[Rfam]
RNA: 6S / SsrS RNA
RNA sequence: CGUUUUCUGCGGUGUGCGCCAGCACACUCUUACAUAUUGCCUUGUUCCUAUUUACGACCCGGGUCGGUUACUUAAGGCUGUUGUGCAAGUCCGCCGCGAGCGGAAAGCCUGAAGGCCUUGAUCUCCCUCCCACCUGAUCCCAUUGGAUCAAGGUCGUUUGGUGGGUAGCGGCAUCGCGGUUGACGC
Number, nucleotide and partner (000 for none) at each position: 001c000002g184003u183004u182005u000006u000007c179008u178009g177010c176011g175012g174013u173014g172015u171016g000017c170018g169019c168020c000021a000022g000023c000024a000025c000026a000027c000028u000029c000030u000031u000032a000033c000034a000035u000036a000037u000038u000039g154040c153041c152042u000043u150044g149045u000046u147047c146048c145049u000050a000051u000052u000053u000054a000055c000056g000057a000058c000059c000060c000061g131062g130063g129064u000065c000066g126067g125068u000069u000070a122071c000072u121073u120074a119075a118076g117077g116078c115079u114080g000081u000082u000083g000084u000085g108086c107087a000088a000089g000090u104091c103092c102093g101094c100095c000096g000097c000098g000099a000100g094101c093102g092103g091104a090105a000106a000107g086108c085109c000110u000111g000112a000113a000114g079115g078116c077117c076118u075119u074120g073121a072122u070123c000124u000125c067126c066127c000128u000129c063130c062131c061132a000133c000134c000135u000136g000137a000138u000139c000140c000141c000142a000143u000144u000145g048146g047147a046148u000149c044150a043151a000152g041153g040154u039155c000156g000157u000158u000159u000160g000161g000162u000163g000164g000165g000166u000167a000168g019169c018170g017171g015172c014173a013174u012175c011176g010177c009178g008179g007180u000181u000182g004183a003184c002185g000186c000